[Rfam]
RNA sequence: UGGUCAUUACCAAGGCUCUUAGAAUGCAGUUUCUGAAUUGCUGUGGAUAUGAUCAUGAAAAACUUUUCACUAGCUUUUGUCUUCUCUACCUCGCUAACAUUAAAGCGACUGGGAACAUUU
Numbered sequence: 001u002g003g004u005c006a007u008u009a010c011c012a013a014g015g016c017u018c019u020u021a022g023a024a025u026g027c028a029g030u031u032u033c034u035g036a037a038u039u040g041c042u043g044u045g046g047a048u049a050u051g052a053u054c055a056u057g058a059a060a061a062a063c064u065u066u067u068c069a070c071u072a073g074c075u076u077u078u079g080u081c082u083u084c085u086c087u088a089c090c091u092c093g094c095u096a097a098c099a100u101u102a103a104a105g106c107g108a109c110u111g112g113g114a115a116c117a118u119u120u
Stems, first nucleotide, its partner, number of pairs: 003053005010046003026041004066113004073106004
RNA: Small nucleolar RNA SNORA32
Organism: Chrysochloris asiatica